[Rfam]
RNA sequence: UGCUGUUAGUGAUGAUUUUUAAAAAAUUAGACAGAUGGGAAUCUCUCUGACAAAGAAUGAAGAUUUUUAAAUACUGAAACGGUA
Numbered sequence: 001u002g003c004u005g006u007u008a009g010u011g012a013u014g015a016u017u018u019u020u021a022a023a024a025a026a027u028u029a030g031a032c033a034g035a036u037g038g039g040a041a042u043c044u045c046u047c048u049g050a051c052a053a054a055g056a057a058u059g060a061a062g063a064u065u066u067u068u069a070a071a072u073a074c075u076g077a078a079a080c081g082g083u084a
Stems, first nucleotide, its partner, number of pairs: 001084007
RNA: Small nucleolar RNA SNORD79
Organism: Neophocaena asiaeorientalis